[Rfam]
RNA sequence: ACUGACAAAGCCAAACCCGUCGUGAGGCGGGGACGGAAAGCCACGGGUCUCAAUGAGACAGCCGGGUUGCCGGAU
Number, nucleotide and partner (000 for none) at each position: 001a075002c000003u072004g071005a000006c000007a000008a000009a000010g000011c036012c035013a000014a000015a000016c031017c030018c029019g028020u027021c026022g000023u000024g000025a000026g021027g020028c019029g018030g017031g016032g000033a000034c061035g012036g011037a000038a000039a068040g067041c066042c065043a000044c064045g063046g062047g059048u058049c057050u000051c000052a000053a000054u000055g000056a000057g049058a048059c047060a000061g034062c046063c045064g044065g042066g041067u040068u039069g000070c000071c004072g003073g000074a000075u001

A member of the RNA family "c-di-GMP-I-GGC riboswitch aptamer" from Desulfohalobium retbaense, 75 nucleotides long. Rfam 15.1 lists 1,298 matches to the family in 717 species. The family's consensus secondary structure is taken from published work. Rfam links the family to the GO term cyclic-di-GMP binding. NCBI's taxonomy places the organism under Bacteria, Desulfovibrionales, Desulfohalobiaceae, Desulfohalobium, Desulfohalobium retbaense.